Rfam assigns this 161-nucleotide sequence from Panthera leo to the family "U1 spliceosomal RNA". The organism belongs to Panthera, within Eukaryota. The family's RNA type in Rfam is spliceosomal small nuclear RNA. For this family Rfam cites "Crystal structure at 1.92 A resolution of the RNA-binding domain of the U1A spliceosomal protein complexed with an RNA hairpin" (Oubridge et al., Nature, 1994). The base pairs follow the family's consensus structure, which is taken from published work. U1 is a small nuclear RNA (snRNA) component of the spliceosome (involved in pre-mRNA splicing).

RNA sequence: AUACUAUGGCAGGGGAGAUACCAUGAUCACGAAGGUAGUUUUCCCAGGAUGAGGCUCAUCCAUUGCAUUCCAGAUGUCUUGACUCUUGGGAUUUCCCCAAAUGAGGGAAACUUGACUGCAUAAUUUGUGGUAGUAGGGAAAUGUGUUCACGCUCUCCCCUC
Number, nucleotide and partner (000 for none) at each position: 001a000002u000003a000004c000005u000006a000007u000008g000009g119010c118011a117012g116013g045014g044015g043016a042017g041018a040019u000020a039021c038022c000023a036024u035025g000026a000027u000028c000029a000030c000031g000032a000033a000034g000035g024036u023037a000038g021039u020040u018041u017042u016043c015044c014045c013046a087047g086048g085049a084050u000051g083052a000053g080054g079055c000056u000057c076058a075059u074060c073061c000062a000063u000064u000065g000066c000067a000068u000069u000070c000071c000072a000073g060074a059075u058076g057077u000078c000079u054080u053081g000082a000083c051084u049085c048086u047087u046088g000089g000090g113091a112092u110093u109094u108095c000096c106097c105098c000099a000100a000101a000102u000103g000104a000105g097106g096107g000108a094109a093110a092111c000112u091113u090114g000115a000116c012117u011118g010119c009120a000121u000122a000123a000124u000125u000126u000127g000128u000129g000130g000131u000132a000133g000134u000135a160136g159137g158138g157139a000140a155141a000142u000143g152144u151145g150146u000147u000148c000149a000150c145151g144152c143153u000154c000155u140156c000157c138158c137159c136160u135161c000